[Rfam]
RNA: Eukaryotic small subunit ribosomal RNA, nucleotides 2000 to 2149
RNA sequence: CCGCCCGUCGUUGCUACCGAUGAGAGCAAGGCAGAGUCAUCAGGAGACAACUACCCCUUGGGGCAGUCAUUGAAAUUGGGCAAUGCCCUGCUCUUAGAGGAAGCAAAAGUCGUAACAAGGUUGUUGUAGGUGAACUGCCAAAAGGAUCAA
Numbered sequence: 001c002c003g004c005c006c007g008u009c010g011u012u013g014c015u016a017c018c019g020a021u022g023a024g025a026g027c028a029a030g031g032c033a034g035a036g037u038c039a040u041c042a043g044g045a046g047a048c049a050a051c052u053a054c055c056c057c058u059u060g061g062g063g064c065a066g067u068c069a070u071u072g073a074a075a076u077u078g079g080g081c082a083a084u085g086c087c088c089u090g091c092u093c094u095u096a097g098a099g100g101a102a103g104c105a106a107a108a109g110u111c112g113u114a115a116c117a118a119g120g121u122u123g124u125u126g127u128a129g130g131u132g133a134a135c136u137g138c139c140a141a142a143a144g145g146a147u148c149a150a
Stems, first nucleotide, its partner, number of pairs: 001119001003116001006112002009109001011106005017100002021096008030087004036081003046071002050067003054063003121144002124141003129136002